[Rfam]
RNA sequence: AACGGUGCAGUAAAUGGUCUGCACUAAGGGCUGAAUGGAGCCGCUUAC
Numbered sequence: 001a002a003c004g005g006u007g008c009a010g011u012a013a014a015u016g017g018u019c020u021g022c023a024c025u026a027a028g029g030g031c032u033g034a035a036u037g038g039a040g041c042c043g044c045u046u047a048c
Base pairs, nucleotide, nucleotide: 004025005024006023007022008021009020010019029042030041031040032039
Dot-bracket structure: ...(((((((........)))))))...((((......))))......

The record is a 48-nucleotide RNA, which matches "gut-2 RNA" in Rfam. It is annotated as a small RNA. It is one of the family's seed sequences.